[Rfam]
The family of this 75-nucleotide sequence from Haemonchus placei is "mir-5928 microRNA precursor family".
RNA sequence: GGCCCAAAUUCGAAGUAGAAUAGAUUAGAAGGAUCAUCUGACCCUACUAAACUACUCUAUUUAGAGUUUGUGCCC
Numbered sequence: 001g002g003c004c005c006a007a008a009u010u011c012g013a014a015g016u017a018g019a020a021u022a023g024a025u026u027a028g029a030a031g032g033a034u035c036a037u038c039u040g041a042c043c044c045u046a047c048u049a050a051a052c053u054a055c056u057c058u059a060u061u062u063a064g065a066g067u068u069u070g071u072g073c074c075c
Stems, first nucleotide, its partner, number of pairs: 001074003005070005011064001013062007021054003025050004030045001032043001034041002
Rfam links the family to the GO terms RISC complex and miRNA-mediated post-transcriptional gene silencing.